A member of the RNA family "ASpks TB sRNA" from Saccharothrix australiensis, 69 nucleotides long. By type it is an antisense RNA. A search with the family's covariance model found it, with a score of 66 bits.
RNA sequence: CUUCAGCGAACCCAGGUACAGCGGCUCGACGCGGUCCUGGCCGUAGGUGGCCAGCAACGCCUGCGCCUC
Numbered sequence: 001c002u003u004c005a006g007c008g009a010a011c012c013c014a015g016g017u018a019c020a021g022c023g024g025c026u027c028g029a030c031g032c033g034g035u036c037c038u039g040g041c042c043g044u045a046g047g048u049g050g051c052c053a054g055c056a057a058c059g060c061c062u063g064c065g066c067c068u069c
Base pairs, nucleotide, nucleotide: 014026015025017023027063032059033058037054038053039052041050042049043048
On this family, see Arnvig and Young, Mol Microbiol 2009: "Identification of small RNAs in Mycobacterium tuberculosis".